[Rfam]
RNA sequence: UCGUGCAAGGAUGAUUUCUGAAUAUUUCACAUAUCAGACUUCAGAGGUUAUGGAAACAAGAUCUAUGAGAAGGCAUUUCAUAUUCUGAGCAGAGA
Numbered sequence: 001u002c003g004u005g006c007a008a009g010g011a012u013g014a015u016u017u018c019u020g021a022a023u024a025u026u027u028c029a030c031a032u033a034u035c036a037g038a039c040u041u042c043a044g045a046g047g048u049u050a051u052g053g054a055a056a057c058a059a060g061a062u063c064u065a066u067g068a069g070a071a072g073g074c075a076u077u078u079c080a081u082a083u084u085c086u087g088a089g090c091a092g093a094g095a
Stems, first nucleotide, its partner, number of pairs: 001094001004091003046063004

Shown here is a 95-nucleotide RNA sequence from Papaver somniferum, a member of the family "Small nucleolar RNA R64/Z200 family". The family has 14 seed sequences and 748 matches in Rfam 15.1. By type it is a C/D-box small nucleolar RNA. Its family is annotated with RNA processing and nucleolus in the Gene Ontology. A reference for the family is Galardi et al. (2002), "Purified box C/D snoRNPs are able to reproduce site-specific 2'-O-methylation of target RNA in vitro", Mol Cell Biol. Pairs were carried over by alignment from the consensus structure, which was predicted with PFOLD. The match comes from Rfam's covariance-model search (56 bits).